RNA sequence: UGCCUAAACUUCGAAAACGUUAGGUUUCGUUAAGUUCUCGAAGCAUGGCAGUAAAACCGAGUAAGUGAACGGAAGCUCUCCGUUUAGCAACUUACUCGGUCAUGUGGGGAAACUUACAUGGAUGAUCUGAAAUGGUCAUC
Numbered sequence: 001u002g003c004c005u006a007a008a009c010u011u012c013g014a015a016a017a018c019g020u021u022a023g024g025u026u027u028c029g030u031u032a033a034g035u036u037c038u039c040g041a042a043g044c045a046u047g048g049c050a051g052u053a054a055a056a057c058c059g060a061g062u063a064a065g066u067g068a069a070c071g072g073a074a075g076c077u078c079u080c081c082g083u084u085u086a087g088c089a090a091c092u093u094a095c096u097c098g099g100u101c102a103u104g105u106g107g108g109g110a111a112a113c114u115u116a117c118a119u120g121g122a123u124g125a126u127c128u129g130a131a132a133u134g135g136u137c138a139u140c
Stems, first nucleotide, its partner, number of pairs: 001050004009043006057099010067085007101120008121140006
Shown here is a 140-nucleotide RNA sequence, a member of the family "LOOT RNA".